[Rfam]
RNA sequence: GAUCGCAGUGAUGACCUCAUGAAAUUCAAGCUCAACAGACCGGAAUGCAGGCUUCUCUUCUUUUGAGAAAUUUGCGUGUCGACCAUCCCGCUGAACUGAGCGAUC
Numbered sequence: 001g002a003u004c005g006c007a008g009u010g011a012u013g014a015c016c017u018c019a020u021g022a023a024a025u026u027c028a029a030g031c032u033c034a035a036c037a038g039a040c041c042g043g044a045a046u047g048c049a050g051g052c053u054u055c056u057c058u059u060c061u062u063u064u065g066a067g068a069a070a071u072u073u074g075c076g077u078g079u080c081g082a083c084c085a086u087c088c089c090g091c092u093g094a095a096c097u098g099a100g101c102g103a104u105c
Stems, first nucleotide, its partner, number of pairs: 001105006
Overview: A member of the RNA family "Small nucleolar RNA Z107/R87" from Durio zibethinus, 105 nucleotides long. Pairs were carried over by alignment from the consensus structure, which was predicted with RNAfold. It is annotated as a C/D-box small nucleolar RNA. The literature on the family includes a 2001 paper in J Mol Biol by Barneche et al., "Identification of 66 box C/D snoRNAs in Arabidopsis thaliana: extensive gene duplications generated multiple isoforms predicting new ribosomal RNA 2'-O-methylation sites".